RNA: Ribosomal protein L10 leader
RNA sequence: UCAUAAAAUUCCUUUCUGCCUGAGACAGUUGGUGCCCUUUUAAGGGCUUAAAGGCGAGAAGCUUCGCCGCCAACCGAGGUGCUGUUGGGCUGGUUGAGGGUUUGCUUAGAAUCAAGCCUUUAACUGGGCGGAACCUCGGUUUUUGGCGGUUCCGCCCUUUCUAUUUUGGUGC
Number, nucleotide and partner (000 for none) at each position: 001u000002c000003a000004u000005a000006a000007a000008a000009u000010u000011c000012c000013u000014u000015u000016c000017u000018g000019c000020c000021u000022g000023a000024g000025a000026c000027a000028g074029u073030u072031g071032g070033u069034g047035c046036c045037c000038u000039u000040u000041u000042a000043a000044g000045g036046g035047c034048u000049u000050a000051a000052a000053g000054g000055c000056g000057a000058g000059a000060a000061g000062c000063u000064u000065c000066g000067c000068c000069g033070c032071c031072a030073a029074c028075c000076g000077a000078g000079g000080u000081g000082c000083u000084g000085u000086u000087g000088g000089g000090c000091u000092g000093g000094u000095u000096g000097a000098g000099g000100g000101u000102u000103u000104g000105c000106u000107u000108a000109g000110a000111a000112u000113c000114a000115a000116g000117c000118c000119u000120u000121u000122a000123a000124c000125u000126g157127g156128g155129c154130g153131g152132a151133a150134c149135c148136u000137c000138g000139g000140u000141u000142u000143u000144u000145g000146g000147c000148g135149g134150u133151u132152c131153c130154g129155c128156c127157c126158u000159u000160u000161c000162u000163a000164u000165u000166u000167u000168g000169g000170u000171g000172c000